Record summary:
Group I catalytic intron: a 309-nucleotide sequence from Bacillus benzoevorans. Lineage of the source: Bacteria > Bacillati > Bacilli > Caryophanales > Bacillus. Group I catalytic introns are large self-splicing ribozymes. They catalyse their own excision from mRNA, tRNA and rRNA precursors in a wide range of organisms.
RNA sequence: UGUUGCACCUAAAUAAUUUGGGCUUUUAUGUGGCGACACAUAAUCGAAACCUCUUUAAUUGCUGGGACACCCUAAAGCCGUUUCAACCACAACGUAAUUGGUAACAAUAAGCGUGAGGGUAUAAAAAUGAAACGGAUGUAACAAUGGGCAAUCAGCAGGCAAGUUACCUUAUCUCUUACAAAAAAUGAUAAGGUAAAAGCUUCAACGACUAGAGCGGCAGCUCGUACCUCGUAAGUGAUGGACGAGGGAAAUAGGAGGGCACUCUUCCUUGAGUGUUUGAUAUAGUCUAUCCUUGUGUAAAAGCACAAG
Numbered sequence: 001u002g003u004u005g006c007a008c009c010u011a012a013a014u015a016a017u018u019u020g021g022g023c024u025u026u027u028a029u030g031u032g033g034c035g036a037c038a039c040a041u042a043a044u045c046g047a048a049a050c051c052u053c054u055u056u057a058a059u060u061g062c063u064g065g066g067a068c069a070c071c072c073u074a075a076a077g078c079c080g081u082u083u084c085a086a087c088c089a090c091a092a093c094g095u096a097a098u099u100g101g102u103a104a105c106a107a108u109a110a111g112c113g114u115g116a117g118g119g120u121a122u123a124a125a126a127a128u129g130a131a132a133c134g135g136a137u138g139u140a141a142c143a144a145u146g147g148g149c150a151a152u153c154a155g156c157a158g159g160c161a162a163g164u165u166a167c168c169u170u171a172u173c174u175c176u177u178a179c180a181a182a183a184a185a186u187g188a189u190a191a192g193g194u195a196a197a198a199g200c201u202u203c204a205a206c207g208a209c210u211a212g213a214g215c216g217g218c219a220g221c222u223c224g225u226a227c228c229u230c231g232u233a234a235g236u237g238a239u240g241g242a243c244g245a246g247g248g249a250a251a252u253a254g255g256a257g258g259g260c261a262c263u264c265u266u267c268c269u270u271g272a273g274u275g276u277u278u279g280a281u282a283u284a285g286u287c288u289a290u291c292c293u294u295g296u297g298u299a300a301a302a303g304c305a306c307a308a309g
Stems, first nucleotide, its partner, number of pairs: 005025001008022006029040003050258004055253001060157006070148003158201002164195001166194001170190004205288001207287005261274004294307005